A member of the RNA family "Betaproteobacteria-1 RNA" from Noviherbaspirillum cavernae, 118 nucleotides long. The family's consensus secondary structure is taken from published work. It scores 86 bits against the family's covariance model.
[Rfam]
RNA sequence: CGCGUAGUUGGUCGGAAAAUAACGGCAGCGGCUACGGGAUACCCCGGGACUGCGGGAUAGUCUGAGAACCUGGGCGAGGCGGCGAAGUUAGCACCUCGGGACGAAGCGGCUGACGGGU
Number, nucleotide and partner (000 for none) at each position: 001c038002g000003c036004g035005u034006a033007g032008u031009u030010g029011g000012u000013c000014g000015g000016a000017a000018a000019a000020u000021a000022a000023c000024g000025g053026c052027a051028g050029c010030g009031g008032c007033u006034a005035c004036g003037g000038g001039a000040u000041a000042c000043c000044c073045c072046g071047g070048g069049a000050c028051u027052g026053c025054g000055g000056g000057a000058u000059a000060g000061u100062c099063u000064g000065a000066g000067a000068a000069c048070c047071u046072g045073g044074g000075c098076g097077a096078g095079g094080c000081g000082g000083c000084g000085a000086a000087g114088u113089u112090a111091g110092c109093a000094c079095c078096u077097c076098g075099g062100g061101a000102c000103g000104a000105a000106g000107c000108g000109g092110c091111u090112g089113a088114c087115g000116g000117g000118u000